[Rfam]
RNA sequence: UUUUGAUGCUAGGGGUGCUUUUAAAGCUGAGAAAUAUACAUUAACCCUUUACCUGAUCUGGAUAAUACCAGCGUAGGGAAGCUAAUUGUGGUUUUU
Numbered sequence: 001u002u003u004u005g006a007u008g009c010u011a012g013g014g015g016u017g018c019u020u021u022u023a024a025a026g027c028u029g030a031g032a033a034a035u036a037u038a039c040a041u042u043a044a045c046c047c048u049u050u051a052c053c054u055g056a057u058c059u060g061g062a063u064a065a066u067a068c069c070a071g072c073g074u075a076g077g078g079a080a081g082c083u084a085a086u087u088g089u090g091g092u093u094u095u096u
Stems, first nucleotide, its partner, number of pairs: 008082003011048004017027004034041002052077004058071004

Shown here is a 96-nucleotide RNA from Clostridium tyrobutyricum, a member of the family "TPP riboswitch aptamer (THI element)". The family's consensus secondary structure is taken from published work. The match comes from Rfam's covariance-model search (69 bits).